[Rfam]
RNA sequence: UGACGCAUGCUGCGUUUUAUGCGGUCUAACCCACCGCGUACCGGUUAGAAUCCGGAUGGGACUUCUUUUCAAGGAGAAAACAAAUG
Numbered sequence: 001u002g003a004c005g006c007a008u009g010c011u012g013c014g015u016u017u018u019a020u021g022c023g024g025u026c027u028a029a030c031c032c033a034c035c036g037c038g039u040a041c042c043g044g045u046u047a048g049a050a051u052c053c054g055g056a057u058g059g060g061a062c063u064u065c066u067u068u069u070c071a072a073g074g075a076g077a078a079a080a081c082a083a084a085u086g
Stems, first nucleotide, its partner, number of pairs: 002016005018040007041055004
The family of this 86-nucleotide RNA sequence is "freshwater-2 RNA".